Shown here is a 75-nucleotide RNA sequence from Ligilactobacillus pobuzihii, a member of the family "Group II catalytic intron D1-D4-1". NCBI's taxonomy places the organism under Bacteria, Bacillota, Bacilli, Lactobacillaceae, Ligilactobacillus. A search with the family's covariance model found it, with a score of 57 bits. From the family's description: Group II introns are found in rRNA, tRNA and mRNA of organelles in fungi, plants and protists, and also in mRNA in bacteria.
RNA sequence: CAGGCUCAACAGUAAUGCUGGGUUGUCCGUGGCAGAAGUCAGCCGAGGCCAUAGUAGCCAGUAAAGGUGAAGGGC
Numbered sequence: 001c002a003g004g005c006u007c008a009a010c011a012g013u014a015a016u017g018c019u020g021g022g023u024u025g026u027c028c029g030u031g032g033c034a035g036a037a038g039u040c041a042g043c044c045g046a047g048g049c050c051a052u053a054g055u056a057g058c059c060a061g062u063a064a065a066g067g068u069g070a071a072g073g074g075c
Stems, first nucleotide, its partner, number of pairs: 001025002004023005010017002039046002048075003057068003
Dot-bracket structure: ((.(((((.((....)).))))))).............((....)).(((......(((......)))....)))